[Rfam]
RNA sequence: AGAAACAGAUGAGGCGCAUCAAUCAUGAGUACAUAACUACCCUACUGCAAUAAGUUAUGGAAAGGGUGCGAUGCCGAAACACUAUAUUAUGUUGCAGCAUACAUAGUGUUGGAUUCACAGGUUAAGAGCUAAGAAUCUGUCAUUAUAUUACUAUAAUGGAGUGCAUCGCUUGUA
Numbered sequence: 001a002g003a004a005a006c007a008g009a010u011g012a013g014g015c016g017c018a019u020c021a022a023u024c025a026u027g028a029g030u031a032c033a034u035a036a037c038u039a040c041c042c043u044a045c046u047g048c049a050a051u052a053a054g055u056u057a058u059g060g061a062a063a064g065g066g067u068g069c070g071a072u073g074c075c076g077a078a079a080c081a082c083u084a085u086a087u088u089a090u091g092u093u094g095c096a097g098c099a100u101a102c103a104u105a106g107u108g109u110u111g112g113a114u115u116c117a118c119a120g121g122u123u124a125a126g127a128g129c130u131a132a133g134a135a136u137c138u139g140u141c142a143u144u145a146u147a148u149u150a151c152u153a154u155a156a157u158g159g160a161g162u163g164c165a166u167c168g169c170u171u172g173u174a
Stems, first nucleotide, its partner, number of pairs: 008167004016074005024066001032059006078110008087101001111138006119130002140159007
This 174-nucleotide RNA from Macrococcoides caseolyticum belongs to the Rfam family "Lysine riboswitch aptamer". Riboswitches are metabolite binding domains within certain messenger RNAs that serve as precision sensors for their corresponding targets. Pairs were carried over by alignment from the consensus structure, which is taken from published work. The source organism's lineage runs through Bacteria, Bacillota, Caryophanales, Staphylococcaceae and Macrococcoides caseolyticum. Its family is annotated with lysine biosynthetic process in the Gene Ontology. A search with the family's covariance model found it, with a score of 93 bits.